[Rfam]
RNA sequence: AAGAUUACACUUUCAGGGACCAUUUCUAUUGUAUGUUACCAGAGAAGUGUUUCUAAAUAACGUCAGGCUUCAAAAACCCUAAUGAGCUGUAGUGCUUUUUUCUGAGUGUGAAGCUGGCCAGUAGUGCCACCUGGUGGGCCGACUGCUUGCUCUUGAUUGUUCUUUUUUUCCUUUGGGAAGGAUAAUAGGGAGAAAACUCAAGCCGAAGGAU
Numbered sequence: 001a002a003g004a005u006u007a008c009a010c011u012u013u014c015a016g017g018g019a020c021c022a023u024u025u026c027u028a029u030u031g032u033a034u035g036u037u038a039c040c041a042g043a044g045a046a047g048u049g050u051u052u053c054u055a056a057a058u059a060a061c062g063u064c065a066g067g068c069u070u071c072a073a074a075a076a077c078c079c080u081a082a083u084g085a086g087c088u089g090u091a092g093u094g095c096u097u098u099u100u101u102c103u104g105a106g107u108g109u110g111a112a113g114c115u116g117g118c119c120a121g122u123a124g125u126g127c128c129a130c131c132u133g134g135u136g137g138g139c140c141g142a143c144u145g146c147u148u149g150c151u152c153u154u155g156a157u158u159g160u161u162c163u164u165u166u167u168u169u170c171c172u173u174u175g176g177g178a179a180g181g182a183u184a185a186u187a188g189g190g191a192g193a194a195a196a197c198u199c200a201a202g203c204c205g206a207a208g209g210a211u
Base pairs, nucleotide, nucleotide: 003039006035007034009032010031015027016026017025018024049064051062054060076211078209079208080207092199094197096195097194098193099192100191101190102189103188106160107159108158116151117150118149122145123144124143125142126140128138130136163185164184165182166181167180168179169178170177171176

A member of the RNA family "Small nucleolar RNA U3" from Balaenoptera musculus, 211 nucleotides long. The family's consensus secondary structure is taken from published work. Gene Ontology terms of the family: RNA processing and nucleolus. Small nucleolar RNAs (snoRNAs) are involved in the processing and modification of rRNA in the nucleolus. By type it is a C/D-box small nucleolar RNA. Taxonomically the source falls in Balaenoptera (Eukaryota, Metazoa, Amniota, Laurasiatheria).